[Rfam]
RNA sequence: CGCCCCGUGAGGGGCGUCUACCCCGGUACCUGAUACGGCCGGAGAGA
Numbered sequence: 001c002g003c004c005c006c007g008u009g010a011g012g013g014g015c016g017u018c019u020a021c022c023c024c025g026g027u028a029c030c031u032g033a034u035a036c037g038g039c040c041g042g043a044g045a046g047a
Stems, first nucleotide, its partner, number of pairs: 001016006017047003021044001023042005
L17-Actino-Proteobacteria ribosomal protein leader: a 47-nucleotide sequence from Nocardioides luteus. Pairs were carried over by alignment from the consensus structure, which is taken from published work. A reference for the family is Eckert and Weinberg (2020), "Discovery of 20 novel ribosomal leader candidates in bacteria and archaea", BMC Microbiol.